Shown here is a 219-nucleotide RNA from Pseudomonas sp. MRSN 12121, a member of the family "sRNA regulator of biofilms A". Rfam describes the family as follows. Important for biofilm formation and pathogenicity. Bacterial strain with deleted SrbA had reduced biofilm mass. As the ability to form biofilms can contribute to the ability a pathogen to thrive within the host, the C. elegans hosts infected with the srbA deleted strain displayed significantly lower mortality rate than the wild-type strain. However, the deletion of srbA had no effect on growth or antibiotic resistance in P. aeruginosa. The family's consensus secondary structure was predicted with R-scape. On this family, see Taylor et al., PLoS One 2017: "A novel small RNA is important for biofilm formation and pathogenicity in Pseudomonas aeruginosa". The family's RNA type in Rfam is small RNA. NCBI's taxonomy places the organism under Bacteria, Pseudomonadota, Gammaproteobacteria, Pseudomonadales, Pseudomonas.

[Rfam]
RNA sequence: AUCAGGGGCCCUGGCAAGGGCCUUCGGAUCGCCGCUCUAACCUACCCACCUGAGCCGAUUCGUGUCUGUACCGCCCACAAGGUGUGUUUGACGAGAUUGCGACUGGAACGAGGUUGUCCCGAGGGACGGAAGCUAAUUAGGUAGACCGGCAACACCCUGCUUGAUCGCAUGAAGGCCCACGACGCCCGCAUGUGCUCGACAGCCAGCCCUUACCUGCUC
Numbered sequence: 001a002u003c004a005g006g007g008g009c010c011c012u013g014g015c016a017a018g019g020g021c022c023u024u025c026g027g028a029u030c031g032c033c034g035c036u037c038u039a040a041c042c043u044a045c046c047c048a049c050c051u052g053a054g055c056c057g058a059u060u061c062g063u064g065u066c067u068g069u070a071c072c073g074c075c076c077a078c079a080a081g082g083u084g085u086g087u088u089u090g091a092c093g094a095g096a097u098u099g100c101g102a103c104u105g106g107a108a109c110g111a112g113g114u115u116g117u118c119c120c121g122a123g124g125g126a127c128g129g130a131a132g133c134u135a136a137u138u139a140g141g142u143a144g145a146c147c148g149g150c151a152a153c154a155c156c157c158u159g160c161u162u163g164a165u166c167g168c169a170u171g172a173a174g175g176c177c178c179a180c181g182a183c184g185c186c187c188g189c190a191u192g193u194g195c196u197c198g199a200c201a202g203c204c205a206g207c208c209c210u211u212a213c214c215u216g217c218u219c
Stems, first nucleotide, its partner, number of pairs: 005024008028059004035054003061148002064146005073083003085139002089136001093133001119129002166194006174186003